[Rfam]
RNA: Purine riboswitch aptamer
Organism: Clostridium senegalense
Nucleotides: 114
Base pairs, nucleotide, nucleotide: 020098021097022096023095024094025093029062030061031060032059033058034057071090072089073088074087075086077085
Number, partner (000 for none) and nucleotide at each position: 001000u002000a003000u004000a005000a006000a007000a008000u009000u010000a011000a012000a013000u014000a015000u016000a017000a018000g019000u020098u021097u022096c023095g024094u025093a026000u027000a028000u029062g030061c031060u032059u033058a034057a035000u036000u037000a038000u039000a040000u041000c042000a043000a044000u045000a046000u047000a048000c049000a050000u051000u052000a053000a054000g055000g056000u057034u058033u059032g060031a061030g062029c063000g064000u065000u066000u067000c068000u069000a070000c071090c072089a073088g074087g075086a076000u077085a078000c079000c080000u081000g082000a083000a084000a085077u086075u087074c088073c089072u090071g091000a092000c093025u094024a095023c096022g097021a098020a099000u100000a101000u102000a103000a104000a105000u106000u107000u108000a109000a110000g111000a112000u113000a114000u